[Rfam]
RNA sequence: CACAUCAGCGUAAUUUGCUGACGUGGCAGUAAAUCGCGUCCUAGAGGGCGCGAUUUGUUGCCACGUCAGCAAAUCGCGCUAACGUGG
Numbered sequence: 001c002a003c004a005u006c007a008g009c010g011u012a013a014u015u016u017g018c019u020g021a022c023g024u025g026g027c028a029g030u031a032a033a034u035c036g037c038g039u040c041c042u043a044g045a046g047g048g049c050g051c052g053a054u055u056u057g058u059u060g061c062c063a064c065g066u067c068a069g070c071a072a073a074u075c076g077c078g079c080u081a082a083c084g085u086g087g
Base pairs, nucleotide, nucleotide: 001086002085003084005082007080008079009078010077011076013074014073015072016071017070018069019068020067021066023064024063025062026061027060028059029058030057031056032055033054034053035052036051037050038049040047041046
RNA: MIR7486 microRNA precursor family